[Rfam]
RNA sequence: UCUAGGGAAAAGCAAACCAUUCUGAAAAGAUGGGACGCAAAGCCGCUGGCCUAAAUCGCCGUUCCCGAGCGGAGACAUGGUAGCAGGGUUACCUCA
Dot-bracket structure: ...........((...((((.((....))))))...))..((((.((((((....((.(((((....))))).))...)))..)))))))......
c-di-GMP-I riboswitch aptamer: a 96-nucleotide RNA from Desulfobulbus sp. Tol-SR. GEMM was predicted in a large-scale screen for bacterial structured RNA regulatory elements. A search with the family's covariance model found it, with a score of 65 bits.